[Rfam]
RNA: mir-71 microRNA precursor family
Organism: Notodromas monacha
RNA sequence: UUGACGUGAAAGACAUGGGUAGUGAGAUGGAGUUUGCGUCUCACUACUUUGUCUUUCAUGCAGAC
Numbered sequence: 001u002u003g004a005c006g007u008g009a010a011a012g013a014c015a016u017g018g019g020u021a022g023u024g025a026g027a028u029g030g031a032g033u034u035u036g037c038g039u040c041u042c043a044c045u046a047c048u049u050u051g052u053c054u055u056u057c058a059u060g061c062a063g064a065c
Stems, first nucleotide, its partner, number of pairs: 008057008017049003021045009